Shown here is a 124-nucleotide RNA from Carlito syrichta, a member of the family "Small nucleolar RNA SNORA40". The family's consensus secondary structure was predicted with RNAalifold. It scores 85 bits against the family's covariance model. The family's RNA type in Rfam is H/ACA-box small nucleolar RNA. Its family is annotated with nucleolus and RNA processing in the Gene Ontology.
RNA sequence: AGCACUUGUGUUUGUUUUAAAGUUGCGAAGACUUAUAGACAAGGGCAAAAAAUAAAUCCUCUUUUGCAACCCAGAACUCACUGUUCAGUAUGAGUUUUGAUAAAAUACUAUAGAAAAAGAAAAA
Numbered sequence: 001a002g003c004a005c006u007u008g009u010g011u012u013u014g015u016u017u018u019a020a021a022g023u024u025g026c027g028a029a030g031a032c033u034u035a036u037a038g039a040c041a042a043g044g045g046c047a048a049a050a051a052a053u054a055a056a057u058c059c060u061c062u063u064u065u066g067c068a069a070c071c072c073a074g075a076a077c078u079c080a081c082u083g084u085u086c087a088g089u090a091u092g093a094g095u096u097u098u099g100a101u102a103a104a105a106u107a108c109u110a111u112a113g114a115a116a117a118a119g120a121a122a123a124a
Stems, first nucleotide, its partner, number of pairs: 002046002005043005011037001014032005022026001057120002060117001062115005072099009